A member of the RNA family "skipping-rope RNA" from Rhizoctonia solani, 84 nucleotides long. It is annotated as a small RNA. The match comes from Rfam's covariance-model search (53 bits).

RNA sequence: AUCAUUAGAGGUGGGAAAGGUUCCCCACGCGCUUGUCGAAAGGCAAGUUACCAGAGAUCAGGAUACGCCGCCCUGCAAUAUGAU
Numbered sequence: 001a002u003c004a005u006u007a008g009a010g011g012u013g014g015g016a017a018a019g020g021u022u023c024c025c026c027a028c029g030c031g032c033u034u035g036u037c038g039a040a041a042g043g044c045a046a047g048u049u050a051c052c053a054g055a056g057a058u059c060a061g062g063a064u065a066c067g068c069c070g071c072c073c074u075g076c077a078a079u080a081u082g083a084u
Stems, first nucleotide, its partner, number of pairs: 001084005006078001008076001011028005019069003030054001031048007059075004